[Rfam]
RNA sequence: UGGCAGAUGAUGAUUUCAUUUGGAUUCCCCUUCAUGAAUUCCUGACUGAAGUUUUCCACCCUCUGAUGCU
Numbered sequence: 001u002g003g004c005a006g007a008u009g010a011u012g013a014u015u016u017c018a019u020u021u022g023g024a025u026u027c028c029c030c031u032u033c034a035u036g037a038a039u040u041c042c043u044g045a046c047u048g049a050a051g052u053u054u055u056c057c058a059c060c061c062u063c064u065g066a067u068g069c070u
Stems, first nucleotide, its partner, number of pairs: 002070004
RNA: Small nucleolar RNA snoR60
Organism: Adiantum capillus-veneris